[Rfam]
RNA sequence: UCCACCGCGAGGUGGAAUCUGAAGGAAGCCGAAGGCAAAGCACUGGCCCGACGAACAGAAAUCGCAUAGGAGGCGGUCGCCGUGGGUGAGGAGGCAAUUAUCUUCAAAGCCCCAUUCUUGCACGGAAACGGUGGACGUAAAUGCGGCGGGUAUAAGUGUGAAGGUCACGUGU
Numbered sequence: 001u002c003c004a005c006c007g008c009g010a011g012g013u014g015g016a017a018u019c020u021g022a023a024g025g026a027a028g029c030c031g032a033a034g035g036c037a038a039a040g041c042a043c044u045g046g047c048c049c050g051a052c053g054a055a056c057a058g059a060a061a062u063c064g065c066a067u068a069g070g071a072g073g074c075g076g077u078c079g080c081c082g083u084g085g086g087u088g089a090g091g092a093g094g095c096a097a098u099u100a101u102c103u104u105c106a107a108a109g110c111c112c113c114a115u116u117c118u119u120g121c122a123c124g125g126a127a128a129c130g131g132u133g134g135a136c137g138u139a140a141a142u143g144c145g146g147c148g149g150g151u152a153u154a155a156g157u158g159u160g161a162a163g164g165u166c167a168c169g170u171g172u
Stems, first nucleotide, its partner, number of pairs: 001016006028172002035165002040159005046151005062146006073138003077134007084112004090105004
Background
The family of this 172-nucleotide RNA from Marinobacterium aestuarii is "Group II catalytic intron D1-D4-3". Rfam links the family to the GO term Group II intron splicing. The organism belongs to Marinobacterium, within Bacteria. For this family Rfam cites "The ins and outs of group II introns" (Bonen and Vogel, Trends Genet, 2001). The match comes from Rfam's covariance-model search (150 bits).